[Rfam]
Background
This 149-nucleotide RNA from Colocasia esculenta belongs to the Rfam family "MIR390 microRNA precursor family". A reference for the family is Gustafson et al. (2005), "ASRP: the Arabidopsis Small RNA Project Database", Nucleic Acids Res.
RNA sequence: AGGAAGAAUCCGUAAAGCUCAGGAGGGAUAGCGCCAUGGCAUGGGUUGCCUGCAGAGAAGAACUUGUUUCACCCGGCCUGCAGGGUGAAGGUCUCCUUUUGCCUCCGUCUUACCGGCGCUAUCUAUCCUGAGUUUCAUGGGUUCUUCUU
Dot-bracket structure: .........(.....(((((((((.((((((((((...............................................................................)))))))))).))))))))).....).........
Numbered sequence: 001a002g003g004a005a006g007a008a009u010c011c012g013u014a015a016a017g018c019u020c021a022g023g024a025g026g027g028a029u030a031g032c033g034c035c036a037u038g039g040c041a042u043g044g045g046u047u048g049c050c051u052g053c054a055g056a057g058a059a060g061a062a063c064u065u066g067u068u069u070c071a072c073c074c075g076g077c078c079u080g081c082a083g084g085g086u087g088a089a090g091g092u093c094u095c096c097u098u099u100u101g102c103c104u105c106c107g108u109c110u111u112a113c114c115g116g117c118g119c120u121a122u123c124u125a126u127c128c129u130g131a132g133u134u135u136c137a138u139g140g141g142u143u144c145u146u147c148u149u
Stems, first nucleotide, its partner, number of pairs: 010140001016134009026124010
Lineage of the source: Eukaryota > Embryophyta > Euphyllophyta > Colocasieae > Colocasia. The match comes from Rfam's covariance-model search (90 bits).